[Rfam]
RNA sequence: CCGAUCCCCGCGGAAGAGUUCGGUCUGAUUCCCUUGAGGAAUCACGGACCGGCGCCGAAGGAGCAACCGCCCCGGAAACUCUCAGGCAACCGGACCGCGGGGGAACG
Numbered sequence: 001c002c003g004a005u006c007c008c009c010g011c012g013g014a015a016g017a018g019u020u021c022g023g024u025c026u027g028a029u030u031c032c033c034u035u036g037a038g039g040a041a042u043c044a045c046g047g048a049c050c051g052g053c054g055c056c057g058a059a060g061g062a063g064c065a066a067c068c069g070c071c072c073c074g075g076a077a078a079c080u081c082u083c084a085g086g087c088a089a090c091c092g093g094a095c096c097g098c099g100g101g102g103g104a105a106c107g
Base pairs, nucleotide, nucleotide: 006102007101008100009099010098011097012096013095020052021051022050023049024048025047026046027045054087055086056085057083058082061081062080063079067075068074
Glycine riboswitch aptamer: a 107-nucleotide sequence from Labrys okinawensis.